[Rfam]
RNA sequence: UUUGGGAAAUGAUGCCAAUAUUAUCUGAGGCGCCAGCUCUGCGGAAUGCUGAUUAUUAAUUUAUUUUUUAAAAUUUAUUUGCACGUCAGUCUGAUCCCAAU
Numbered sequence: 001u002u003u004g005g006g007a008a009a010u011g012a013u014g015c016c017a018a019u020a021u022u023a024u025c026u027g028a029g030g031c032g033c034c035a036g037c038u039c040u041g042c043g044g045a046a047u048g049c050u051g052a053u054u055a056u057u058a059a060u061u062u063a064u065u066u067u068u069u070a071a072a073a074u075u076u077a078u079u080u081g082c083a084c085g086u087c088a089g090u091c092u093g094a095u096c097c098c099a100a101u
Stems, first nucleotide, its partner, number of pairs: 002100006
Rfam assigns this 101-nucleotide RNA sequence from Citrus unshiu to the family "Small nucleolar RNA Z122". The literature on the family includes a 2003 paper in Nucleic Acids Res by Chen et al., "The high diversity of snoRNAs in plants: identification and comparative study of 120 snoRNA genes from Oryza sativa". Lineage of the source: Eukaryota > Viridiplantae > Streptophytina > Rutaceae > Citrus.